[Rfam]
RNA sequence: UAAUCUAUUUAAGAACAAAUCCUUAUUUAAUUAUGAUAGACACAUACACAUGACUGCUCAGAAUCAUUUAUUAUCAUAAAUCCGACUACAUCAUUAACAUUGAAAAACAAAAGAUAAUUACUGUGUGAACAAUAAUUUUUUAAGAUUUGAAU
Numbered sequence: 001u002a003a004u005c006u007a008u009u010u011a012a013g014a015a016c017a018a019a020u021c022c023u024u025a026u027u028u029a030a031u032u033a034u035g036a037u038a039g040a041c042a043c044a045u046a047c048a049c050a051u052g053a054c055u056g057c058u059c060a061g062a063a064u065c066a067u068u069u070a071u072u073a074u075c076a077u078a079a080a081u082c083c084g085a086c087u088a089c090a091u092c093a094u095u096a097a098c099a100u101u102g103a104a105a106a107a108c109a110a111a112a113g114a115u116a117a118u119u120a121c122u123g124u125g126u127g128a129a130c131a132a133u134a135a136u137u138u139u140u141u142a143a144g145a146u147u148u149g150a151a152u
Stems, first nucleotide, its partner, number of pairs: 004150002007147001008145002012141001014139002019133002024125003028120007